Description
This 98-nucleotide RNA sequence from Furfurilactobacillus rossiae belongs to the Rfam family "Purine riboswitch aptamer".

RNA sequence: AAUUAGCAUACGAACAAAGCUUAUAUAUAACCAUGAUAUGGAUGGUUGUCUCUACCCAGAGCCCUAAACUCCGGACUAUAAGCAAAUUAAGUCAAUGU
Dot-bracket structure: ..................(((((((...((((((.......))))))........((.(((.......))).))..)))))))...............
Taxonomically the source falls in Furfurilactobacillus rossiae (Bacteria, Bacillota, Lactobacillales, Lactobacillaceae). A search with the family's covariance model found it, with a score of 66 bits.